[Rfam]
RNA sequence: AAAAAAGCAGGGGCCUCUUGCUGGGCCUCUCGUAAAAUUUGGGGACAGCAUUGUGCAUUGUUUUUGUGCGAACCUCUGUUUUCUUGAUUGUUGCUUAGGGUUCAGUAAAUGAUGCAACAUUU
Numbered sequence: 001a002a003a004a005a006a007g008c009a010g011g012g013g014c015c016u017c018u019u020g021c022u023g024g025g026c027c028u029c030u031c032g033u034a035a036a037a038u039u040u041g042g043g044g045a046c047a048g049c050a051u052u053g054u055g056c057a058u059u060g061u062u063u064u065u066g067u068g069c070g071a072a073c074c075u076c077u078g079u080u081u082u083c084u085u086g087a088u089u090g091u092u093g094c095u096u097a098g099g100g101u102u103c104a105g106u107a108a109a110u111g112a113u114g115c116a117a118c119a120u121u122u
Stems, first nucleotide, its partner, number of pairs: 005039002011028002014025003054116009070103006
RNA: Small nucleolar RNA snoR74